[Rfam]
Rfam assigns this 37-nucleotide RNA sequence to the family "abiF RNA". By type it is a small RNA. Actinobacteria, Bacteroidetes, Clostridia, Proteobacteria, one Clostridia phage.
RNA sequence: CCCCCCAGGCCUCUCGACGAUGCUCAAUACCGGGGGC
Numbered sequence: 001c002c003c004c005c006c007a008g009g010c011c012u013c014u015c016g017a018c019g020a021u022g023c024u025c026a027a028u029a030c031c032g033g034g035g036g037c
Stems, first nucleotide, its partner, number of pairs: 001036005008024003
Dot-bracket structure: (((((..(((...........))).......))))).